[Rfam]
RNA sequence: ACCUCUGUUGUCAAUGAUGGAUUCUUGUUGAACUGAAAUACGAUGAUUUUAUAUCAACAUUUCGUCACUACCACUGAGACGACAGAUUA
Dot-bracket structure: ...(((((((((.................................................................)))))))))...
Description
Shown here is an 89-nucleotide RNA sequence from Microcaecilia unicolor, a member of the family "Small nucleolar RNA SNORD70". About the family: snoRNA HBII-234 belongs to the C/D family of snoRNAs. It is the human orthologue of the mouse MBII-234 and is predicted to guide 2'O-ribose methylation of the small 18S rRNA on position A512. It is hosted, together with HBII-95, by the core C/D box snoRNA protein encoding gene NOP5/NOP58. Rfam 15.1 lists 1,085 matches to the family in 579 species. The pairing is the family consensus, mapped onto this sequence. NCBI's taxonomy places the organism under Eukaryota, Bilateria, Dipnotetrapodomorpha, Amphibia, Microcaecilia.